Rhizobiales sRNA Atu_Ti1: a 92-nucleotide sequence from Agrobacterium sp. ATCC 31749. By type it is a small RNA. Taxonomically the source falls in Agrobacterium (Bacteria, Alphaproteobacteria, Hyphomicrobiales, Rhizobiaceae). Rfam's curators put it in the seed alignment.

RNA sequence: GUCCACGUCGCGGCGGACCAAAGCCAGAAUCCCCCAAGGAUGAUGGCUGCGGCCGGCCAACGCCUCGUUGUCAUGAUGAGCAGGCCGGUCGC
Numbered sequence: 001g002u003c004c005a006c007g008u009c010g011c012g013g014c015g016g017a018c019c020a021a022a023g024c025c026a027g028a029a030u031c032c033c034c035c036a037a038g039g040a041u042g043a044u045g046g047c048u049g050c051g052g053c054c055g056g057c058c059a060a061c062g063c064c065u066c067g068u069u070g071u072c073a074u075g076a077u078g079a080g081c082a083g084g085c086c087g088g089u090c091g092c
Base pairs, nucleotide, nucleotide: 001018002017003016004015023047024046025045026044031039032038049092050091051090052089053088054087055086056085057084058083065080069076
Dot-bracket structure: ((((..........))))....((((....((.....))....)))).((((((((((......(...(......)...)..))))))))))